[Rfam]
RNA sequence: AACGUUCAUCUCGAUUAGCCGGUUUUUCAUCAAGCCCAGAUCGAGACGGAAGUAGGGGUUCCCCCCGAAGGAACGCGCC
Dot-bracket structure: ..(((((.((((((((......................))))))))..[.....(((......)))....)))))]...
About this RNA: Rfam assigns this 79-nucleotide sequence from filamentous cyanobacterium CCP5 to the family "Glutamine riboswitch aptamer (glnA leader)". For this family Rfam cites "Bacterial aptamers that selectively bind glutamine" (Ames and Breaker, RNA Biol, 2011). It scores 54 bits against the family's covariance model.